[Rfam]
This 78-nucleotide sequence from Microcaecilia unicolor belongs to the Rfam family "Mammalian CPEB3 ribozyme".
RNA sequence: AGUCCAACUCCAGGGACCGUAGCAGACGCGUUCACAUUAUAGCCUUUGUCAGAUUCAUACAAAUCUGCACAUUCUGCU
Numbered sequence: 001a002g003u004c005c006a007a008c009u010c011c012a013g014g015g016a017c018c019g020u021a022g023c024a025g026a027c028g029c030g031u032u033c034a035c036a037u038u039a040u041a042g043c044c045u046u047u048g049u050c051a052g053a054u055u056c057a058u059a060c061a062a063a064u065c066u067g068c069a070c071a072u073u074c075u076g077c078u
Base pairs, nucleotide, nucleotide: 013046014045015044017042021078022077023076024075025074026073028040030038050067051066052065053064054063055062
Dot-bracket structure: ............[[[.[...((((((.(.(.......).).].]]]...((((((......)))))).....))))))
Source information
The family's consensus secondary structure is taken from published work. Rfam links the family to the GO term RNA nuclease activity. A search with the family's covariance model found it, with a score of 42 bits. NCBI's taxonomy places the organism under Eukaryota, Chordata, Teleostomi, Amphibia, Microcaecilia.